[Rfam]
RNA sequence: AUGCUUUGGUUUCUCCUCUACAUCGUACUAAUCUUUCGCCUUUUACUGCAGAUUACCGUGGAAAUGAAUACUUUAUUGACCUUGUACCGAUUUUUGGAAAUUAUGGUAUUAUGAGGAAUU
Numbered sequence: 001a002u003g004c005u006u007u008g009g010u011u012u013c014u015c016c017u018c019u020a021c022a023u024c025g026u027a028c029u030a031a032u033c034u035u036u037c038g039c040c041u042u043u044u045a046c047u048g049c050a051g052a053u054u055a056c057c058g059u060g061g062a063a064a065u066g067a068a069u070a071c072u073u074u075a076u077u078g079a080c081c082u083u084g085u086a087c088c089g090a091u092u093u094u095u096g097g098a099a100a101u102u103a104u105g106g107u108a109u110u111a112u113g114a115g116g117a118a119u120u
Stems, first nucleotide, its partner, number of pairs: 003080001005078001009069004014064001017062004029055006036048001098120001100119003104115001

The record is a 120-nucleotide RNA sequence from Araneus ventricosus, which matches "U5 spliceosomal RNA" in Rfam. Rfam classes the family as a spliceosomal small nuclear RNA. The base pairs follow the family's consensus structure, which is taken from published work. Lineage of the source: Eukaryota > Protostomia > Ecdysozoa > Araneomorphae > Araneus. A search with the family's covariance model found it, with a score of 52 bits.